About this RNA
A member of the RNA family "MIR8024 microRNA precursor family" from Solanum commersonii, 89 nucleotides long. Its family is annotated with RISC complex and miRNA-mediated post-transcriptional gene silencing in the Gene Ontology.

[Rfam]
RNA sequence: UUGUAGAAUCUGAAGACUUCAACUUGCAUACUUGGAGGAUUUAAAGACUUCAACUUGCAAACUUGGCUGAAUUUAAAGAAACUUCAAGC
Numbered sequence: 001u002u003g004u005a006g007a008a009u010c011u012g013a014a015g016a017c018u019u020c021a022a023c024u025u026g027c028a029u030a031c032u033u034g035g036a037g038g039a040u041u042u043a044a045a046g047a048c049u050u051c052a053a054c055u056u057g058c059a060a061a062c063u064u065g066g067c068u069g070a071a072u073u074u075a076a077a078g079a080a081a082c083u084u085c086a087a088g089c
Base pairs, nucleotide, nucleotide: 001087002086003085005083006082009077011075012074013073014072017069019066020065021064025059026058027057028056032053033052034051035050036049037048